[Rfam]
RNA sequence: UCUACACAAGUAUGCCUACUUGAUCAACAGGCUGAUUCAGAGCUUGUGUAGAACAACUUAAUAAUGUCAGCAGUCUUACUGAAUGAGGCAGCUGCAAGUCAAGAUGAAGGAAUUCUUCAUUCUAGCUUGUGGUGUUUUGUCAUGCCUUAUUUGAGCUGAAUU
Dot-bracket structure: (((((.(((((.(((((...........))))..[[[[[[)))))).)))))...............((((.......]]]]]]......(((((........(((((.......)))))........))))).....................))))....
RNA: DUF2800 RNA
Organism: Lactobacillus iners